The family of this 244-nucleotide sequence from Cohnella sp. CIP 111063 is "BsrG".
The family has 6 seed sequences and 614 matches in Rfam 15.1.
The source organism's lineage runs through Bacteria, Bacillati, Bacillota, Paenibacillaceae and Cohnella.
About the family: bsrE, bsrG and bsrH pair through intermolecular interactions with antisense sRNAs. They form type I toxin/antitoxin system that includes an mRNA encoding for a short, toxic peptide (bsrE, bsrG and bsrH) and an antitoxin that is comprised of an antisense RNA. bsrG encodes a 39-amino-acid toxin, and the 180 nucleotide antisense sRNA called SR4 acts as the antitoxin (they overlap by 123 nucleotides).
Gene Ontology terms of the family: toxin activity and autolysis.
RNA sequence: UACAACAGUAUAGGCUUGCAAGGGCGGUCGGCUAAUCUCCCGGAAGGGAGGUGAUGCCGUGGAGGUUAAGGACGCAUUGGCGCUAAUGAUUUCAUUCGCGACUCUAAUCGUACUUAUUCUUUCAUUCCUUAAAAAGAAAUAAACCGCCCUCGCCAAAGGUCGCGGUUUAUUUCCCAUCGCUUACCGGAUAGCCUACCGCCCUUAAAAGCGGCUGUUGUAAGGAGUCGUGUUGGUAGCACGGCUC
Number, nucleotide and partner (000 for none) at each position: 001u219002a218003c217004a216005a215006c000007a213008g212009u000010a000011u195012a194013g193014g192015c191016u190017u000018g153019c152020a000021a150022g149023g148024g147025c000026g144027g000028u142029c000030g000031g000032c000033u054034a000035a052036u000037c050038u049039c048040c047041c046042g000043g000044a000045a000046g041047g040048g039049a038050g037051g000052u035053g000054a033055u000056g000057c000058c000059g000060u000061g123062g122063a121064g120065g119066u000067u000068a000069a000070g000071g000072a000073c000074g000075c088076a087077u000078u000079g000080g000081c000082g000083c000084u000085a000086a000087u076088g075089a000090u000091u000092u000093c000094a000095u000096u000097c000098g115099c000100g113101a000102c000103u000104c000105u000106a000107a000108u000109c000110g000111u000112a000113c100114u000115u098116a000117u000118u000119c065120u064121u063122u062123c061124a000125u000126u000127c000128c000129u000130u000131a000132a000133a000134a000135a000136g000137a000138a000139a000140u000141a000142a028143a000144c026145c000146g000147c024148c023149c022150u021151c000152g019153c018154c000155a000156a000157a000158g000159g000160u000161c000162g000163c000164g173165g172166u000167u000168u000169a000170u000171u000172u165173c164174c000175c000176a000177u000178c000179g000180c000181u000182u000183a000184c000185c000186g000187g000188a000189u000190a016191g015192c014193c013194u012195a011196c211197c210198g209199c208200c000201c000202u000203u000204a000205a000206a000207a000208g199209c198210g197211g196212c008213u007214g000215u005216u004217g003218u002219a001220a000221g000222g244223a243224g242225u241226c240227g239228u238229g237230u236231u235232g000233g000234u000235a231236g230237c229238a228239c227240g226241g225242c224243u223244c222